RNA: Y RNA
Nucleotides: 094
Base pairs, nucleotide, nucleotide: 001090002089003088004087005086006085007084008083010082011081014078016075017074018073019072020071028064029063030062032060033059
Number, partner (000 for none) and nucleotide at each position: 001090g002089g003088c004087u005086g006085g007084u008083c009000c010082g011081a012000g013000u014078g015000c016075a017074g018073u019072g020071g021000u022000g023000u024000u025000u026000a027000c028064a029063a030062c031000u032060a033059a034000u035000u036000g037000a038000u039000c040000a041000c042000a043000a044000c045000c046000a047000g048000u049000u050000a051000c052000a053000g054000a055000u056000u057000u058000a059033u060032u061000u062030g063029u064028u065000c066000c067000u068000u069000c070000u071020c072019c073018a074017c075016u076000c077000c078014c079000a080000c081011u082010u083008g084007a085006c086005u087004a088003g089002c090001c091000a092000a093000a094000a